[Rfam]
Ribosomal S15 leader: a 124-nucleotide RNA sequence from Marinomonas sp. S3726.
The family's RNA type in Rfam is cis-regulatory leader.
The E. coli Ribosomal S15 gene 5' UTR can form two alternative structures. One that is a series of three hairpins, The other includes a pseudoknot.
The match comes from Rfam's covariance-model search (45 bits).
On this family, see Benard et al., Biochimie 1996: "Pseudoknot and translational control in the expression of the S15 ribosomal protein".
The family's consensus secondary structure is taken from published work.
Nucleotides: 124
Base pairs, nucleotide, nucleotide: 007026009024010023011022012021049077050076056075057074059072
Number, partner (000 for none) and nucleotide at each position: 001000u002000a003000g004000g005000g006000u007026g008000c009024c010023u011022g012021a013000a014000a015000a016000u017000a018000u019000g020000c021012u022011c023010g024009g025000c026007c027000a028000u029000c030000c031000u032000a033000u034000a035000u036000u037000u038000u039000u040000a041000a042000u043000a044000g045000c046000a047000u048000a049077u050076u051000a052000u053000a054000u055000c056075g057074g058000a059072g060000a061000u062000a063000a064000g065000a066000u067000a068000a069000u070000g071000g072059c073000a074057u075056u076050a077049a078000c079000u080000g081000c082000a083000g084000a085000a086000u087000c088000a089000a090000a091000a092000g093000c094000a095000g096000c097000a098000u099000u100000g101000g102000u103000a104000a105000a106000a107000g108000a109000g110000u111000u112000u113000c114000a115000a116000g117000u118000a119000g120000c121000u122000g123000a124000a